Notes:
Rfam assigns this 338-nucleotide part of an RNA from Micromonas commoda to the family "Eukaryotic large subunit ribosomal RNA". NCBI's taxonomy places the organism under Eukaryota, Chlorophyta, Mamiellophyceae, Mamiellales, Micromonas. Pairs were carried over by alignment from the consensus structure, which is taken from published work. A search with the family's covariance model found it, with a score of 3231 bits.

RNA sequence: GUGCUCCAAGAGUAACCGGAUUCAGUACGAGAGGAACCAUCCGAUCACGCAUUUGGUAAUGCGCUCGGCUGAAAAGCCGAUGGCGCGAAGCUACGCGUGACAUGCUAACAGCUGAACGCCUCUAAGCUUGGUAGCAGUCCUCGAUGGAGCACCACCUACCGGUCCGUCGUUAAUCGACUACGUAUAGUUUUAUGAAUAGCAUUGCGAUCGCAAUUCCGAACGGCCGGACCGAUACAUCCAUUGCAGACGACUUUAAUGCGCUGCCGGGUACUGUAAGUAGCAGAGUAGCCUUGCUGCUACGAUCUACUGAGGUUCAUCCCGUCGCAGCUAAGAUGUGU
Dot-bracket structure: (((((((..(((..(.(((((.................))))).)(((((...(((...(((((((((((....))))))..)))))...))).)))))...((....(((((...........)))).)....))...)))...))))))).......(((((((..........................................................)))))))..(((((.(..(.......)..).....(((((.(((.((.....((((.(..(((((......)))))..)))))....))....)))...)))))...)))))..